[Rfam]
Shown here is a 46-nucleotide RNA from Cyprinus carpio, a member of the family "Histone 3' UTR stem-loop".
The family's RNA type in Rfam is cis-regulatory element.
The mRNAs of metazoan histone genes lack a poly-A tail. 3' end processing occurs at a site between a highly conserved stem-loop (modelled by this family) and a purine rich region around 20 nts downstream (the histone downstream element, or HDE). The stem-loop is bound by a 31 kDa stem-loop binding protein (SLBP - also termed the histone hairpin binding protein, or HBP). Together with U7 snRNA binding of the HDE, SLBP binding nucleate s the formation of the processing complex.
Rfam 15.1 lists 44,596 matches to the family in 976 species.
The base pairs follow the family's consensus structure, which is taken from published work.
Gene Ontology term of the family: mRNA 3'-end processing by stem-loop binding and cleavage.

RNA sequence: CCAAAGGCUCUUUUAAGAGCCACCCACAUCUAUGAAAAGAGUAUGU
Numbered sequence: 001c002c003a004a005a006g007g008c009u010c011u012u013u014u015a016a017g018a019g020c021c022a023c024c025c026a027c028a029u030c031u032a033u034g035a036a037a038a039g040a041g042u043a044u045g046u
Base pairs, nucleotide, nucleotide: 006021007020008019009018010017011016